[Rfam]
RNA sequence: UCGGCCGAAACCACUGCUCACACACGCGUCGACACAUGCGACUGGGUGCCUGCCUGGCAGGUUGUCGCGUGGGAUGCGUGGAGGCCCAAC
Number, nucleotide and partner (000 for none) at each position: 001u000002c000003g000004g000005c000006c000007g000008a000009a000010a000011c000012c000013a000014c000015u000016g000017c000018u000019c000020a000021c000022a000023c080024a079025c078026g077027c076028g075029u074030c073031g000032a000033c000034a000035c071036a070037u069038g068039c067040g066041a065042c064043u000044g000045g000046g000047u000048g062049c061050c060051u059052g058053c000054c000055u000056g000057g000058c052059a051060g050061g049062u048063u000064g042065u041066c040067g039068c038069g037070u036071g035072g000073g030074a029075u028076g027077c026078g025079u024080g023081g000082a000083g000084g000085c000086c000087c000088a000089a000090c000